Rfam assigns this 55-nucleotide RNA from Caryopteris mongholica to the family "Plastid-psbA-3 3UTR RNA". It is annotated as a cis-regulatory element. About the family: Plastid psbA-3 is a non-coding RNA (ncRNA) present in plastids. It is one of the family's seed sequences. The organism belongs to Caryopteris, within Eukaryota.

[Rfam]
RNA sequence: AAAGGAGCAAUAAACUCUUUCUUGUUUUAUCAAGAGGGUUUAUUGCUCCUUAUAU
Numbered sequence: 001a002a003a004g005g006a007g008c009a010a011u012a013a014a015c016u017c018u019u020u021c022u023u024g025u026u027u028u029a030u031c032a033a034g035a036g037g038g039u040u041u042a043u044u045g046c047u048c049c050u051u052a053u054a055u
Stems, first nucleotide, its partner, number of pairs: 002051012019036006